Rfam assigns this 135-nucleotide sequence from Trichechus manatus to the family "Small nucleolar RNA SNORA72". Lineage of the source: Eukaryota > Opisthokonta > Amniota > Trichechidae > Trichechus manatus. Its family is annotated with nucleolus and RNA processing in the Gene Ontology. A search with the family's covariance model found it, with a score of 97 bits. The base pairs follow the family's consensus structure, which was predicted with PFOLD. U72 is a member of the H/ACA class of snoRNAs. The snoRNA gene is located in intron 4 of the ribosomal L30 protein gene in human, mouse and chicken. Rfam classes the family as an H/ACA-box small nucleolar RNA. For this family Rfam cites "The family of box ACA small nucleolar RNAs is defined by an evolutionarily conserved secondary structure and ubiquitous sequence elements essential for RNA accumulation" (Ganot et al., Genes Dev, 1997).

RNA sequence: CUGUAAAUAUCCUUCUCCAUGUCUUGAUAUCAUGACAGCCAAGGCAGGCAAGACAUUCACUACAGGAAGACAAUGCCCGUGUCCCCAGAUCUAGUUCUUUCCCUAAGUCUGGCUUUAUAAAUGCUGGUGAUACAC
Numbered sequence: 001c002u003g004u005a006a007a008u009a010u011c012c013u014u015c016u017c018c019a020u021g022u023c024u025u026g027a028u029a030u031c032a033u034g035a036c037a038g039c040c041a042a043g044g045c046a047g048g049c050a051a052g053a054c055a056u057u058c059a060c061u062a063c064a065g066g067a068a069g070a071c072a073a074u075g076c077c078c079g080u081g082u083c084c085c086c087a088g089a090u091c092u093a094g095u096u097c098u099u100u101c102c103c104u105a106a107g108u109c110u111g112g113c114u115u116u117a118u119a120a121a122u123g124c125u126g127g128u129g130a131u132a133c134a135c
Stems, first nucleotide, its partner, number of pairs: 003060002020046007028038001070128002073125001075124002085112006092105003